[Rfam]
RNA sequence: CCAGGGGGCCGGGCAGCCGCGUUGGGGGAAACUCCGCCGAGGAAAGUCCGGGCUCCACGAAACAAGGGUGGCGGGUAACGCCCGCCCGGCGAGGGGGCUUGCUCCCGAAGCCGAGGGAAAGUGCCACAGAGAGUAUACCGCCGAUGGCGCCUACAGCGCACAGGCAAGGGUGAAAGGGUGCGGUAAAAGCGCACCGGGGGCCUGGUAACAGGUUCCGCAUGGCAAACCCCACCCGGAGCAAGACCAAAUAGGGGUCUCGCGCGAGAAGGCCGCAAGGCACGAAGGCAGGAGCGUUUCGCUCCGAGAGAUCCGGGUUGGUCGCUUGAGCUGCGGAGCGAUCCGCAGCCUAGAUGAAUGGCUGCCCCUGCAGCGCUGGUCGCAAGAUACCGGUUGCAGGACAGAACCCGGCUUACAGGCCCCCUGGCACU
Numbered sequence: 001c002c003a004g005g006g007g008g009c010c011g012g013g014c015a016g017c018c019g020c021g022u023u024g025g026g027g028g029a030a031a032c033u034c035c036g037c038c039g040a041g042g043a044a045a046g047u048c049c050g051g052g053c054u055c056c057a058c059g060a061a062a063c064a065a066g067g068g069u070g071g072c073g074g075g076u077a078a079c080g081c082c083c084g085c086c087c088g089g090c091g092a093g094g095g096g097g098c099u100u101g102c103u104c105c106c107g108a109a110g111c112c113g114a115g116g117g118a119a120a121g122u123g124c125c126a127c128a129g130a131g132a133g134u135a136u137a138c139c140g141c142c143g144a145u146g147g148c149g150c151c152u153a154c155a156g157c158g159c160a161c162a163g164g165c166a167a168g169g170g171u172g173a174a175a176g177g178g179u180g181c182g183g184u185a186a187a188a189g190c191g192c193a194c195c196g197g198g199g200g201c202c203u204g205g206u207a208a209c210a211g212g213u214u215c216c217g218c219a220u221g222g223c224a225a226a227c228c229c230c231a232c233c234c235g236g237a238g239c240a241a242g243a244c245c246a247a248a249u250a251g252g253g254g255u256c257u258c259g260c261g262c263g264a265g266a267a268g269g270c271c272g273c274a275a276g277g278c279a280c281g282a283a284g285g286c287a288g289g290a291g292c293g294u295u296u297c298g299c300u301c302c303g304a305g306a307g308a309u310c311c312g313g314g315u316u317g318g319u320c321g322c323u324u325g326a327g328c329u330g331c332g333g334a335g336c337g338a339u340c341c342g343c344a345g346c347c348u349a350g351a352u353g354a355a356u357g358g359c360u361g362c363c364c365c366u367g368c369a370g371c372g373c374u375g376g377u378c379g380c381a382a383g384a385u386a387c388c389g390g391u392u393g394c395a396g397g398a399c400a401g402a403a404c405c406c407g408g409c410u411u412a413c414a415g416g417c418c419c420c421c422u423g424g425c426a427c428u
Stems, first nucleotide, its partner, number of pairs: 001424010011413001012363007020039002023036005044411003048408005053238004062296001064294001066234005071085005086115001087113004116229002121227002123223003138169002140165003145162002147159004177195006196218001197216008242320004252311006288302005327346008
This 428-nucleotide RNA from Alteraurantiacibacter aestuarii belongs to the Rfam family "Bacterial RNase P class A". Lineage of the source: Bacteria > Pseudomonadota > Alphaproteobacteria > Sphingomonadales > Alteraurantiacibacter. It scores 286 bits against the family's covariance model.